A member of the RNA family "FuFi-1 RNA", 279 nucleotides long.
[Rfam]
RNA sequence: AGCUGAUGCGAAAGGGCGAACCUUCAGCAGUCCAACACUGCUAAAGUGAAGCAGCAUCCCAGAGAAGUGCAGGUAUCUAUGUACGGUGCUUCGUGCAAAAACAUCGUACCCUGUCAAGGAAACGAUUCCGCUGGGCAUACGUGGAAGUGGCCACGGGAAAGGGCGUCGGGAUGACGACCGAUGCCUUAAAAACAACGCCAGCGGCCGAUGCACCUGCAGGAUGCUCCGGGUGACAAAAGUUGGAGGAAUGAACUCUGUGAGAUACCGCAGGGUUCAUUU
Numbered sequence: 001a002g003c004u005g006a007u008g009c010g011a012a013a014g015g016g017c018g019a020a021c022c023u024u025c026a027g028c029a030g031u032c033c034a035a036c037a038c039u040g041c042u043a044a045a046g047u048g049a050a051g052c053a054g055c056a057u058c059c060c061a062g063a064g065a066a067g068u069g070c071a072g073g074u075a076u077c078u079a080u081g082u083a084c085g086g087u088g089c090u091u092c093g094u095g096c097a098a099a100a101a102c103a104u105c106g107u108a109c110c111c112u113g114u115c116a117a118g119g120a121a122a123c124g125a126u127u128c129c130g131c132u133g134g135g136c137a138u139a140c141g142u143g144g145a146a147g148u149g150g151c152c153a154c155g156g157g158a159a160a161g162g163g164c165g166u167c168g169g170g171a172u173g174a175c176g177a178c179c180g181a182u183g184c185c186u187u188a189a190a191a192a193c194a195a196c197g198c199c200a201g202c203g204g205c206c207g208a209u210g211c212a213c214c215u216g217c218a219g220g221a222u223g224c225u226c227c228g229g230g231u232g233a234c235a236a237a238a239g240u241u242g243g244a245g246g247a248a249u250g251a252a253c254u255c256u257g258u259g260a261g262a263u264a265c266c267g268c269a270g271g272g273u274u275c276a277u278u279u
Stems, first nucleotide, its partner, number of pairs: 002052003026042005032243005054224006067084005072266007085214005091208002248277011
The sequence is in the family's curated seed alignment. It is annotated as a small RNA. The base pairs follow the family's consensus structure, which is taken from published work.